The record is a 71-nucleotide RNA sequence from Pseudomonas graminis, which matches "narK RNA" in Rfam. The family's consensus secondary structure is taken from published work. The match comes from Rfam's covariance-model search (58 bits). It is annotated as a cis-regulatory element.
[Rfam]
RNA sequence: GGCCUGUCGUUUGCAACACCGUGUCCACAGGCAAUCAACGCCGAUUGCCAUAUUCACGACAAAGGCGCCGU
Numbered sequence: 001g002g003c004c005u006g007u008c009g010u011u012u013g014c015a016a017c018a019c020c021g022u023g024u025c026c027a028c029a030g031g032c033a034a035u036c037a038a039c040g041c042c043g044a045u046u047g048c049c050a051u052a053u054u055c056a057c058g059a060c061a062a063a064g065g066c067g068c069c070g071u
Base pairs, nucleotide, nucleotide: 030049031048032047033046034045035044036043